[Rfam]
RNA sequence: GCAAAUGAUGAUUUUCCCUUUGGAAUCUCGUUCGUCUGAUUUUCCUGUUGAGAAAUGGAAUUGCUGACUGCA
Dot-bracket structure: .........................(((((..((...........)).)))))...................
Numbered sequence: 001g002c003a004a005a006u007g008a009u010g011a012u013u014u015u016c017c018c019u020u021u022g023g024a025a026u027c028u029c030g031u032u033c034g035u036c037u038g039a040u041u042u043u044c045c046u047g048u049u050g051a052g053a054a055a056u057g058g059a060a061u062u063g064c065u066g067a068c069u070g071c072a
Stems, first nucleotide, its partner, number of pairs: 026053005033047002